[Rfam]
RNA sequence: AUACCGUCACAACGGCUUCCUGGCGUGACGGCCUGGUAUGAACGGAGCA
Numbered sequence: 001a002u003a004c005c006g007u008c009a010c011a012a013c014g015g016c017u018u019c020c021u022g023g024c025g026u027g028a029c030g031g032c033c034u035g036g037u038a039u040g041a042a043c044g045g046a047g048c049a
Stems, first nucleotide, its partner, number of pairs: 004031007013022002015048003019045002